[Rfam]
RNA: SAM riboswitch aptamer (S box leader)
Organism: Olleya namhaensis
RNA sequence: AUGUUAUCAAGAAAGGUGGAGAGAUAGACUCGCUGAAGCCUUAGCAACCCUUAGACUUACUAAGAAGGUGCUAAAUUCUACUUAAUUUUCGAUUCAUUAAUCGAAACAUUGGAUAGAUAACUC
Numbered sequence: 001a002u003g004u005u006a007u008c009a010a011g012a013a014a015g016g017u018g019g020a021g022a023g024a025u026a027g028a029c030u031c032g033c034u035g036a037a038g039c040c041u042u043a044g045c046a047a048c049c050c051u052u053a054g055a056c057u058u059a060c061u062a063a064g065a066a067g068g069u070g071c072u073a074a075a076u077u078c079u080a081c082u083u084a085a086u087u088u089u090c091g092a093u094u095c096a097u098u099a100a101u102c103g104a105a106a107c108a109u110u111g112g113a114u115a116g117a118u119a120a121c122u123c
Base pairs, nucleotide, nucleotide: 003121004120005119006118007117008116013042014041015040016039017038021031022030023029025080026079027078028077043072044071045070046069048068049067050064051063052062053061076115081112082111084109